Source information: Streptomyces sRNA 4677: a 247-nucleotide RNA from Streptomyces seoulensis. Rfam describes the family as follows. Located in the intergenic region between anti-sigma factor SCO4677 gene and a putative regulatory protein gene SCO4676. scr4677 expression requires the SCO4677 activity and scr4677 sRNA itself seem to affect the levels of the SCO4676-associated transcripts.

RNA sequence: UGCUCCGGUCGGACGGGUGGUCAUUAAGACCUGGAAGACCGGGGGAAAGCACCCCACCAAACCCCACCCCUCCCGCCCACGGCGGCAGCCUCACUCGGGCGGGUGAACUUGACUGUUUCCGCUGGCAAUUGGCACCCUCGGCGGCUCUAGGCUCAGCGGCAAGACAACAGCGGACAUACGUCGGCCCCCGCCGGGAGUGGCUUCCCAGUGCGAGGGCCUGACCAUCAAGGAAGAGAACCGCUUCCCG
Numbered sequence: 001u002g003c004u005c006c007g008g009u010c011g012g013a014c015g016g017g018u019g020g021u022c023a024u025u026a027a028g029a030c031c032u033g034g035a036a037g038a039c040c041g042g043g044g045g046a047a048a049g050c051a052c053c054c055c056a057c058c059a060a061a062c063c064c065c066a067c068c069c070c071u072c073c074c075g076c077c078c079a080c081g082g083c084g085g086c087a088g089c090c091u092c093a094c095u096c097g098g099g100c101g102g103g104u105g106a107a108c109u110u111g112a113c114u115g116u117u118u119c120c121g122c123u124g125g126c127a128a129u130u131g132g133c134a135c136c137c138u139c140g141g142c143g144g145c146u147c148u149a150g151g152c153u154c155a156g157c158g159g160c161a162a163g164a165c166a167a168c169a170g171c172g173g174a175c176a177u178a179c180g181u182c183g184g185c186c187c188c189c190g191c192c193g194g195g196a197g198u199g200g201c202u203u204c205c206c207a208g209u210g211c212g213a214g215g216g217c218c219u220g221a222c223c224a225u226c227a228a229g230g231a232a233g234a235g236a237a238c239c240g241c242u243u244c245c246c247g
Stems, first nucleotide, its partner, number of pairs: 007226003016077004091106006121157005183218005189212003193206004229245005
Notes
The family has 12 seed sequences and 563 matches in Rfam 15.1. Lineage of the source: Bacteria > Bacillati > Actinomycetota > Kitasatosporales > Streptomyces.